[Rfam]
RNA sequence: GCAUCGGUUUAGCUCAGUGGUUACUUCCUACCAGACGUUUCCAUUCUCAGGUCCGCGGGCUAGAGAGUUCAACCACGGGCGCUGUCCGGUGUUUUU
Numbered sequence: 001g002c003a004u005c006g007g008u009u010u011a012g013c014u015c016a017g018u019g020g021u022u023a024c025u026u027c028c029u030a031c032c033a034g035a036c037g038u039u040u041c042c043a044u045u046c047u048c049a050g051g052u053c054c055g056c057g058g059g060c061u062a063g064a065g066a067g068u069u070c071a072a073c074c075a076c077g078g079g080c081g082c083u084g085u086c087c088g089g090u091g092u093u094u095u096u
Stems, first nucleotide, its partner, number of pairs: 002091006012080004017076004025065003